[Rfam]
RNA sequence: GGGAAAGGAACUUCUGCUAAUCGUACGUCCUGUGCACAACGCAGAAGUCACCGCAUCCUGCGGA
Numbered sequence: 001g002g003g004a005a006a007g008g009a010a011c012u013u014c015u016g017c018u019a020a021u022c023g024u025a026c027g028u029c030c031u032g033u034g035c036a037c038a039a040c041g042c043a044g045a046a047g048u049c050a051c052c053g054c055a056u057c058c059u060g061c062g063g064a
Stems, first nucleotide, its partner, number of pairs: 011047007023035004051063004

Record summary: The record is a 64-nucleotide sequence from Sporolactobacillus inulinus, which matches "Bacillaceae-1 RNA" in Rfam. By type it is a small RNA. The organism belongs to Sporolactobacillus, within Bacteria.